[Rfam]
RNA sequence: UAUUACAAUAUGGAGAACUUACUUCAAACCCUUGAUAAAUUUUCUCUUUUACGCUAUAAUAACAUAGCUAACUUAAUAAAAGUAUUGGUGCGUGGUAAUCCGCCGGGGCUUGUGCAAUGGAAACCUAUGAACCUUGUCAGGUCCGAGAGGAAGCAGCAAUAAGUAGUCAUUUUCAUGUGCCACGAGGAAACCUGGCGGGUUAUCAUACACGAAUACUUUUUGGUUGGUAGAAGCA
Numbered sequence: 001u002a003u004u005a006c007a008a009u010a011u012g013g014a015g016a017a018c019u020u021a022c023u024u025c026a027a028a029c030c031c032u033u034g035a036u037a038a039a040u041u042u043u044c045u046c047u048u049u050u051a052c053g054c055u056a057u058a059a060u061a062a063c064a065u066a067g068c069u070a071a072c073u074u075a076a077u078a079a080a081a082g083u084a085u086u087g088g089u090g091c092g093u094g095g096u097a098a099u100c101c102g103c104c105g106g107g108g109c110u111u112g113u114g115c116a117a118u119g120g121a122a123a124c125c126u127a128u129g130a131a132c133c134u135u136g137u138c139a140g141g142u143c144c145g146a147g148a149g150g151a152a153g154c155a156g157c158a159a160u161a162a163g164u165a166g167u168c169a170u171u172u173u174c175a176u177g178u179g180c181c182a183c184g185a186g187g188a189a190a191c192c193u194g195g196c197g198g199g200u201u202a203u204c205a206u207a208c209a210c211g212a213a214u215a216c217u218u219u220u221u222g223g224u225u226g227g228u229a230g231a232a233g234c235a
Stems, first nucleotide, its partner, number of pairs: 001235001003233002006230001009061003012047006048058001067228007075221002078219003082216005088210003092206006100198008109186006115177002118175005125166004134159004142151003
The record is a 235-nucleotide RNA sequence from Megasphaera sp. An286, which matches "Bacterial large signal recognition particle RNA" in Rfam. Rfam links the family to the GO terms SRP-dependent cotranslational protein targeting to membrane, signal sequence recognition and signal recognition particle, plasma membrane targeting. The source organism's lineage runs through Bacteria, Bacillati, Bacillota, Veillonellaceae and Megasphaera. It scores 88 bits against the family's covariance model.